[Rfam]
RNA sequence: GUAGGCUAUGGAGACAUGGUUCCGACAACCAUUGGAGGAAAAAUUGUUGGGUCUCUAUGUGCAAUUGCUGGUGUGCUGACCAUUGCCCUGCCUGUGCCCGUCAUUGUAUCAAAU
Numbered sequence: 001g002u003a004g005g006c007u008a009u010g011g012a013g014a015c016a017u018g019g020u021u022c023c024g025a026c027a028a029c030c031a032u033u034g035g036a037g038g039a040a041a042a043a044u045u046g047u048u049g050g051g052u053c054u055c056u057a058u059g060u061g062c063a064a065u066u067g068c069u070g071g072u073g074u075g076c077u078g079a080c081c082a083u084u085g086c087c088c089u090g091c092c093u094g095u096g097c098c099c100g101u102c103a104u105u106g107u108a109u110c111a112a113a114u
Stems, first nucleotide, its partner, number of pairs: 001114002005110001007108005013102003018097001021094001037077002040074001050062001